Small nucleolar RNA Z157/R69/R10: a 96-nucleotide RNA sequence from Klebsormidium nitens. The family's consensus secondary structure was predicted with PFOLD. The literature on the family includes a 2003 paper in Nucleic Acids Res by Chen et al., "The high diversity of snoRNAs in plants: identification and comparative study of 120 snoRNA genes from Oryza sativa". Clan: SNORD52 clan. It is annotated as a C/D-box small nucleolar RNA.
[Rfam]
RNA sequence: AGAGUUGCUAUGAUGAAAAACAGUGUUUCGGACUAGAGUAUCCGAGCUACUUCGUGGCGUUGAAGAUACAACUCUUGGCUGUCUGAGCUCAACUCU
Numbered sequence: 001a002g003a004g005u006u007g008c009u010a011u012g013a014u015g016a017a018a019a020a021c022a023g024u025g026u027u028u029c030g031g032a033c034u035a036g037a038g039u040a041u042c043c044g045a046g047c048u049a050c051u052u053c054g055u056g057g058c059g060u061u062g063a064a065g066a067u068a069c070a071a072c073u074c075u076u077g078g079c080u081g082u083c084u085g086a087g088c089u090c091a092a093c094u095c096u
Base pairs, nucleotide, nucleotide: 001096002095003094004093005092006091007090008087039065041063042062046058047057048056049055050054